[Rfam]
RNA sequence: UCGCGAUAAAGGCAAGCCGGCCGCGAGGCCGUGCACGCAAAGUGACGGAUCUCUCCGACUCGGGGAGAUGGCCGCGCCACCGAA
Numbered sequence: 001u002c003g004c005g006a007u008a009a010a011g012g013c014a015a016g017c018c019g020g021c022c023g024c025g026a027g028g029c030c031g032u033g034c035a036c037g038c039a040a041a042g043u044g045a046c047g048g049a050u051c052u053c054u055c056c057g058a059c060u061c062g063g064g065g066a067g068a069u070g071g072c073c074g075c076g077c078c079a080c081c082g083a084a
Base pairs, nucleotide, nucleotide: 012038013037017033018031019030020029021028022027042077043076044075046074047073048072049069050068051067052066053065054064055063

This 84-nucleotide sequence from Rhodopirellula sp. MGV belongs to the Rfam family "c-di-GMP-I riboswitch aptamer". Lineage of the source: Bacteria > Pseudomonadati > Planctomycetia > Pirellulaceae > Rhodopirellula.